[Rfam]
The family of this 237-nucleotide sequence from Limnospira maxima is "HNH endonuclease-associated RNA and ORF (HEARO) RNA". The source organism's lineage runs through Bacteria, Bacillati, Cyanophyceae, Oscillatoriophycideae and Limnospira maxima. It scores 83 bits against the family's covariance model.
RNA sequence: GCGAUAUCCUCUUGCAUAAAAUCCGGUAAUUUCCGGCAGGAGGCGGAAAUUACUCCUCACAGAGUCUGCAAGAUGCAGGUCCAGGAUUAGACCUACGUUAAGGGGGUGAUGACACCCACAGGUGAGCGCCAGCCUGUUGCUCUGUCGUCUAUCUUUAAGGAACGACAUGAGUGGAUUUGUCAGCUCGAGUGAGCUAGACGUAAAAAGCCCCUUUAACAUGACCGAAGCCAACAUUAC
Number, nucleotide and partner (000 for none) at each position: 001g069002c068003g066004a065005u064006a000007u062008c000009c042010u041011c039012u038013u000014g037015c036016a000017u000018a000019a000020a000021a000022u000023c000024c000025g000026g000027u000028a000029a000030u000031u000032u000033c000034c000035g000036g015037c014038a012039g011040g000041a010042g009043g058044c000045g056046g055047a000048a000049a000050u000051u000052a000053c000054u000055c046056c045057u000058c043059a000060c000061a000062g007063a000064g005065u004066c003067u000068g002069c001070a000071a000072g223073a000074u221075g000076c000077a094078g093079g092080u091081c090082c000083a000084g000085g000086a000087u000088u000089a000090g081091a080092c079093c078094u077095a000096c000097g217098u216099u215100a214101a213102g212103g211104g210105g209106g208107u207108g000109a000110u000111g000112a145113c144114a000115c000116c139117c000118a137119c136120a135121g134122g133123u132124g000125a000126g000127c000128g228129c227130c000131a000132g123133c122134c121135u120136g119137u118138u000139g116140c000141u000142c000143u000144g113145u112146c000147g199148u198149c197150u196151a195152u000153c193154u192155u191156u000157a000158a000159g190160g000161a000162a000163c187164g186165a185166c000167a000168u182169g181170a180171g000172u000173g000174g000175a000176u000177u000178u000179g000180u170181c169182a168183g000184c000185u165186c164187g163188a000189g000190u159191g155192a154193g153194c000195u151196a150197g149198a148199c147200g000201u000202a000203a000204a000205a000206a000207g107208c106209c105210c104211c103212u102213u101214u100215a099216a098217c097218a000219u000220g000221a074222c000223c072224g000225a000226a000227g129228c128229c000230a000231a000232c000233a000234u000235u000236a000237c000